The record is a 63-nucleotide sequence, which matches "cow-rumen-1 RNA" in Rfam.
RNA sequence: UCACCGGGUGCAAAGUUAGGACUUGUAUGCGUAAUUCCGGCUACCUGAUAUUAUCGAAAGAGG
Numbered sequence: 001u002c003a004c005c006g007g008g009u010g011c012a013a014a015g016u017u018a019g020g021a022c023u024u025g026u027a028u029g030c031g032u033a034a035u036u037c038c039g040g041c042u043a044c045c046u047g048a049u050a051u052u053a054u055c056g057a058a059a060g061a062g063g
Stems, first nucleotide, its partner, number of pairs: 004040004009031004014023003